[Rfam]
RNA sequence: CCGACCGAGAGGCGCUGCAACGGGCGUGGAGCCCGCCACGCUCGGUCGGGCGCGACAGAUCCGCAAGGGCGCCUCCCACCA
Numbered sequence: 001c002c003g004a005c006c007g008a009g010a011g012g013c014g015c016u017g018c019a020a021c022g023g024g025c026g027u028g029g030a031g032c033c034c035g036c037c038a039c040g041c042u043c044g045g046u047c048g049g050g051c052g053c054g055a056c057a058g059a060u061c062c063g064c065a066a067g068g069g070c071g072c073c074u075c076c077c078a079c080c081a
Stems, first nucleotide, its partner, number of pairs: 002048007021035005

Shown here is an 81-nucleotide sequence, a member of the family "SAH (S-adenosyl-L-homocysteine) riboswitch aptamer". The base pairs follow the family's consensus structure, which is taken from published work. The match comes from Rfam's covariance-model search (40 bits). A reference for the family is Wang et al. (2008), "Riboswitches that sense S-adenosylhomocysteine and activate genes involved in coenzyme recycling", Mol Cell.